[Rfam]
RNA: SAM riboswitch aptamer (S box leader)
Organism: Neobacillus vireti
RNA sequence: CUCUUAUCAAGAGAGGUGGAGGGACUGGCCCCGCGAUACCUCGGCAGCAGACUUUCGUUAGUACUGUGCCAAUUCCAGGAGCGAUUUGCUUGAAGAUAAGAA
Dot-bracket structure: .(((((((....(((((...(((.[[[[)))......)))))((((.(((.((......)))..))))))...(]]]](((((...)))))..)))))))).
Numbered sequence: 001c002u003c004u005u006a007u008c009a010a011g012a013g014a015g016g017u018g019g020a021g022g023g024a025c026u027g028g029c030c031c032c033g034c035g036a037u038a039c040c041u042c043g044g045c046a047g048c049a050g051a052c053u054u055u056c057g058u059u060a061g062u063a064c065u066g067u068g069c070c071a072a073u074u075c076c077a078g079g080a081g082c083g084a085u086u087u088g089c090u091u092g093a094a095g096a097u098a099a100g101a102a
Stems, first nucleotide, its partner, number of pairs: 002101007013042005021031003025078004043070004048066002050062001052061002074094001079091005